RNA sequence: UGGCGCCCAAUGUGGGGCCUGGAUACUGGGGGAAAACGUGAGGGACACGACGGAAGAAGAAGAGAUGCACACCCAUUCAAAUAGUUCAGAGACGUCGCGGUAGCCUGCUGUGACCAAGCCAACAGGUAAGCUGGUCGUUCAAUCAUGGGGCAAGAAUUAAGUCAGCAUCAGAAGUAUGUGAUACAGUUAAGAGGAGCUUUACAGGCAAGAGGAGUAAAGGUUACAACCGAGGAUUUAUUUCGUUUCUUUGAUUUUGUGAAGGAUAUCUGCCCAU
Numbered sequence: 001u002g003g004c005g006c007c008c009a010a011u012g013u014g015g016g017g018c019c020u021g022g023a024u025a026c027u028g029g030g031g032g033a034a035a036a037c038g039u040g041a042g043g044g045a046c047a048c049g050a051c052g053g054a055a056g057a058a059g060a061a062g063a064g065a066u067g068c069a070c071a072c073c074c075a076u077u078c079a080a081a082u083a084g085u086u087c088a089g090a091g092a093c094g095u096c097g098c099g100g101u102a103g104c105c106u107g108c109u110g111u112g113a114c115c116a117a118g119c120c121a122a123c124a125g126g127u128a129a130g131c132u133g134g135u136c137g138u139u140c141a142a143u144c145a146u147g148g149g150g151c152a153a154g155a156a157u158u159a160a161g162u163c164a165g166c167a168u169c170a171g172a173a174g175u176a177u178g179u180g181a182u183a184c185a186g187u188u189a190a191g192a193g194g195a196g197c198u199u200u201a202c203a204g205g206c207a208a209g210a211g212g213a214g215u216a217a218a219g220g221u222u223a224c225a226a227c228c229g230a231g232g233a234u235u236u237a238u239u240u241c242g243u244u245u246c247u248u249u250g251a252u253u254u255u256g257u258g259a260a261g262g263a264u265a266u267c268u269g270c271c272c273a274u
Stems, first nucleotide, its partner, number of pairs: 006031003012026003037049003081127002084123002093118001096112005136150001138149004158201003161197002209249006218236005259274001261272002264269001
Source information: The family of this 274-nucleotide RNA sequence from Nannospalax galili is "Mason-Pfizer monkey virus packaging signal". Pairs were carried over by alignment from the consensus structure, which was predicted with PFOLD. Gene Ontology term of the family: viral genome packaging. A search with the family's covariance model found it, with a score of 148 bits. This family represents a group of sequences that are related to the Mason-Pfizer monkey virus (MPMV) packaging signal. The packaging signal is located in the 5' UTR and is required for specific RNA encapsidation. Lineage of the source: Eukaryota > Euteleostomi > Dipnotetrapodomorpha > Myomorpha > Nannospalax.